[Rfam]
RNA sequence: AAUAUAGAAAAUCCGAAUACCUUUUGGUAAUGGGGGAACCAAUUUUCAGGGGUGAAUCUUAAUUUUUUAAGAAGGGCUGCUUGGUGGUCCUAACCCGUCAGCUAACCCCAUAGGAUGUAACCAAGCGUAUGA
Numbered sequence: 001a002a003u004a005u006a007g008a009a010a011a012u013c014c015g016a017a018u019a020c021c022u023u024u025u026g027g028u029a030a031u032g033g034g035g036g037a038a039c040c041a042a043u044u045u046u047c048a049g050g051g052g053u054g055a056a057u058c059u060u061a062a063u064u065u066u067u068u069a070a071g072a073a074g075g076g077c078u079g080c081u082u083g084g085u086g087g088u089c090c091u092a093a094c095c096c097g098u099c100a101g102c103u104a105a106c107c108c109c110a111u112a113g114g115a116u117g118u119a120a121c122c123a124a125g126c127g128u129a130u131g132a
Stems, first nucleotide, its partner, number of pairs: 011116004018029003030111006040049001050096003058071004074090004

The family of this 132-nucleotide RNA from Acetivibrio saccincola is "c-di-AMP riboswitch aptamer (ydaO/yuaA leader)". Gene Ontology terms of the family: regulation of gene expression and cyclic-di-AMP binding. The base pairs follow the family's consensus structure.